[Rfam]
RNA sequence: GGCUUUUUUCGCCGCCGCGGAGCUCGACCGCAAGAUCAAGUAGCAGUCCCUACAGCGGUGCUGGUCGACUACAUCGACCAGCACCGCGACAGGUUCGGGGUCGAGCCGAUCUGCACCGUCUUGAAGGACGCCGGUGUGCAGGUCGCCCCG
Dot-bracket structure: ................((((.......))))................................................................(((((......((.(((((((...................))))))).)))))))
Description:
ALIL pseudoknot: a 150-nucleotide sequence from Nocardioides sp. S5. On this family, see Mazauric et al., J Biol Chem 2008: "Apical loop-internal loop RNA pseudoknots: a new type of stimulator of -1 translational frameshifting in bacteria". NCBI's taxonomy places the organism under Bacteria, Bacillati, Actinomycetota, Actinomycetes, Nocardioides. Gene Ontology term of the family: positive regulation of translational frameshifting.